[Rfam]
RNA sequence: AAAGCAGAUCGCCUUAUCGCUAUUCGCUUUUGCGACUAGAGGAAAGUCCGAACACCAUAGUGCAGCAUAAUGGUUAACAGCCAUCGGCCGUGAGGUUAGGAAAAGUGCAACAGAAAGAAUGUACAGGUUAAGCUGUAGUGAAAUCAGGUAAACUCUAUGCGGUGCAAUGCCAUGUAAACCAGCGUUUGAGCGCAGCACGUGCAAUGCUGAAGGGUAGGCAGCUAGAGCGUAUUGGUAACAAUACGUGUAGAUAAAUGAUAAGGGCUCUUAUGAGAACAGAAUUCGGCUUAUAGAUCUGCUUUUUUU
Number, nucleotide and partner (000 for none) at each position: 001a302002a301003a300004g299005c298006a297007g296008a295009u294010c293011g291012c263013c262014u261015u260016a259017u258018c257019g000020c039021u038022a037023u000024u035025c034026g033027c032028u000029u000030u000031u000032g027033c026034g025035a024036c000037u022038a021039g020040a000041g000042g000043a000044a289045a288046g287047u000048c286049c285050g284051a283052a282053c164054a163055c162056c161057a000058u000059a000060g198061u197062g196063c195064a000065g160066c159067a158068u157069a156070a084071u083072g082073g081074u080075u000076a000077a000078c000079a000080g074081c073082c072083a071084u070085c099086g097087g096088c095089c094090g000091u000092g000093a000094g089095g088096u087097u086098a000099g085100g155101a154102a000103a000104a000105g153106u152107g149108c148109a000110a000111c000112a000113g000114a000115a000116a000117g000118a000119a000120u000121g000122u137123a000124c135125a134126g133127g000128u000129u000130a000131a000132g000133c126134u125135g124136u000137a122138g000139u000140g000141a000142a000143a000144u000145c000146a000147g000148g108149u107150a000151a000152a106153c105154u101155c100156u069157a068158u067159g066160c065161g056162g055163u054164g053165c000166a000167a000168u220169g219170c218171c217172a000173u000174g000175u000176a000177a000178a000179c000180c209181a208182g207183c206184g000185u000186u000187u000188g000189a000190g202191c201192g200193c199194a000195g063196c062197a061198c060199g193200u192201g191202c190203a000204a000205u000206g183207c182208u181209g180210a000211a000212g000213g000214g000215u000216a000217g171218g170219c169220a168221g000222c000223u000224a000225g000226a000227g246228c245229g244230u243231a242232u241233u240234g239235g000236u000237a000238a000239c234240a233241a232242u231243a230244c229245g228246u227247g000248u000249a000250g000251a000252u000253a000254a000255a000256u000257g018258a017259u016260a015261a014262g013263g012264g000265c000266u000267c000268u000269u000270a000271u000272g000273a000274g000275a000276a000277c000278a000279g000280a000281a000282u052283u051284c050285g049286g048287c046288u045289u044290a000291u011292a000293g010294a009295u008296c007297u006298g005299c004300u003301u002302u001303u000304u000305u000306u000
Bacterial RNase P class A: a 306-nucleotide RNA from Formosa sp. Hel3_A1_48. It scores 210 bits against the family's covariance model. Rfam classes the family as a ribozyme.